RNA sequence: UCCAUUAGUCAGUUUAUUAUAUAUCUCGGUGAAGAGCAAAAGCCAUUGUGCCGAGAGCCUAACCGCUCGAAGAGAGUGGUCUAGAAUGGGAAUGUUAGAGGAUACCCUAACAAACCCUAGAUGGCUCUUAUUGUGAGAUAAGAGUUGCCUGCGCCUAAAGGUGUGGCUAGAGGUUAGGUGUGCUGACAAAAUCGCAACCAAAGAUACUGUCUCAUCGCAUCCGCAAUAGAAGUUGAGCGUUAAAAGCGUGAACUGAAGCCAAGUUAGAGUCCAGUGUGGCAACUGGGGUAGACCUUGGUAAAGCCAAUAAGGAUGUUUGUAGUGAUGUCAUGGUAACAUGACUAUAAGAUGAGGUCAAGGUACGAGUAGCCUAAUACAGGGACAUAUGGUAAAAAGAAUAUUUUUGAAGAUUAUUAUUUUACUUCUUGUCUGAAUGGUGGGUGAAAGUUAGAGGUAGACAAUCCUCUCAAGCAAAGAUAUGAAGAAUAUCUAAGAGCGUAGAGUGCGCUUGAAGGCAAGAAGUUAUAAGGUCGCUCCUUAUGGCUCAGACUUGUUUUCGCUUGUGGUUGAAUAUGGUUGAAGGUUUAACAGUUGGUAGGGCGAAGGUCCAUAUAAUAGUUACUGAUU
Numbered sequence: 001u002c003c004a005u006u007a008g009u010c011a012g013u014u015u016a017u018u019a020u021a022u023a024u025c026u027c028g029g030u031g032a033a034g035a036g037c038a039a040a041a042g043c044c045a046u047u048g049u050g051c052c053g054a055g056a057g058c059c060u061a062a063c064c065g066c067u068c069g070a071a072g073a074g075a076g077u078g079g080u081c082u083a084g085a086a087u088g089g090g091a092a093u094g095u096u097a098g099a100g101g102a103u104a105c106c107c108u109a110a111c112a113a114a115c116c117c118u119a120g121a122u123g124g125c126u127c128u129u130a131u132u133g134u135g136a137g138a139u140a141a142g143a144g145u146u147g148c149c150u151g152c153g154c155c156u157a158a159a160g161g162u163g164u165g166g167c168u169a170g171a172g173g174u175u176a177g178g179u180g181u182g183c184u185g186a187c188a189a190a191a192u193c194g195c196a197a198c199c200a201a202a203g204a205u206a207c208u209g210u211c212u213c214a215u216c217g218c219a220u221c222c223g224c225a226a227u228a229g230a231a232g233u234u235g236a237g238c239g240u241u242a243a244a245a246g247c248g249u250g251a252a253c254u255g256a257a258g259c260c261a262a263g264u265u266a267g268a269g270u271c272c273a274g275u276g277u278g279g280c281a282a283c284u285g286g287g288g289u290a291g292a293c294c295u296u297g298g299u300a301a302a303g304c305c306a307a308u309a310a311g312g313a314u315g316u317u318u319g320u321a322g323u324g325a326u327g328u329c330a331u332g333g334u335a336a337c338a339u340g341a342c343u344a345u346a347a348g349a350u351g352a353g354g355u356c357a358a359g360g361u362a363c364g365a366g367u368a369g370c371c372u373a374a375u376a377c378a379g380g381g382a383c384a385u386a387u388g389g390u391a392a393a394a395a396g397a398a399u400a401u402u403u404u405u406g407a408a409g410a411u412u413a414u415u416a417u418u419u420u421a422c423u424u425c426u427u428g429u430c431u432g433a434a435u436g437g438u439g440g441g442u443g444a445a446a447g448u449u450a451g452a453g454g455u456a457g458a459c460a461a462u463c464c465u466c467u468c469a470a471g472c473a474a475a476g477a478u479a480u481g482a483a484g485a486a487u488a489u490c491u492a493a494g495a496g497c498g499u500a501g502a503g504u505g506c507g508c509u510u511g512a513a514g515g516c517a518a519g520a521a522g523u524u525a526u527a528a529g530g531u532c533g534c535u536c537c538u539u540a541u542g543g544c545u546c547a548g549a550c551u552u553g554u555u556u557u558c559g560c561u562u563g564u565g566g567u568u569g570a571a572u573a574u575g576g577u578u579g580a581a582g583g584u585u586u587a588a589c590a591g592u593u594g595g596u597a598g599g600g601c602g603a604a605g606g607u608c609c610a611u612a613u614a615a616u617a618g619u620u621a622c623u624g625a626u627u
Stems, first nucleotide, its partner, number of pairs: 008623001012620001015618001018615001025055005036049004057179006085122001087120001088117003093112006100105001123149003127142006153167003190586002193583001197578001199576001203574001204568001207359002209355008217316006237249004258299006268289001270287002273284003277306004317379005327342005363447001369442005429549004451467001453465002469562003494509001513557003518552002522545001524542007598609004
Description:
The family of this 627-nucleotide RNA sequence is "ROOL RNA". Rfam's curators write: Firmicutes, Fusobacteria (1 example), Tenericutes (1 example). The base pairs follow the family's consensus structure, which is taken from published work. It is one of the family's seed sequences.